[Rfam]
RNA sequence: GCAACGCAGGCUAAUGUGUCUCGAUGAUUUCAAUUUGGAAUCCCAUAAGCCUACGCUGCGAUGUUGUGUUUGCAUAUUGUCCGAACCCUGUCGGACUGGUAGAUGAUUCUACCGAUUUACUUCCUGUAUUUUUGACCUGUCUGUCAAAGUUUCUAUUGUUAGCACUGCGCCCCAACGCAGUGCUAUUUUUU
Number, nucleotide and partner (000 for none) at each position: 001g000002c000003a000004a000005c000006g000007c000008a000009g051010g050011c049012u048013a000014a000015u047016g046017u000018g000019u000020c000021u045022c000023g043024a000025u000026g042027a041028u040029u039030u038031c037032a036033a000034u000035u000036u032037g031038g030039a029040a028041u027042c026043c023044c000045a021046u016047a015048a012049g011050c010051c009052u000053a000054c000055g000056c000057u000058g000059c000060g000061a000062u000063g000064u000065u000066g000067u000068g000069u000070u000071u000072g000073c000074a000075u000076a000077u000078u000079g096080u095081c094082c093083g092084a091085a000086c000087c000088c000089u000090g000091u084092c083093g082094g081095a080096c079097u000098g113099g112100u111101a110102g109103a108104u000105g000106a000107u000108u103109c102110u101111a100112c099113c098114g000115a000116u000117u000118u000119a000120c000121u000122u000123c000124c000125u000126g000127u000128a000129u000130u158131u000132u000133u000134g000135a000136c000137c000138u000139g000140u000141c000142u000143g000144u000145c000146a000147a000148a000149g000150u000151u000152u000153c000154u000155a000156u000157u000158g130159u000160u000161a184162g183163c182164a181165c180166u179167g178168c177169g000170c000171c000172c000173c000174a000175a000176c000177g168178c167179a166180g165181u164182g163183c162184u161185a000186u000187u000188u000189u000190u000191u000
RNA: GcvB RNA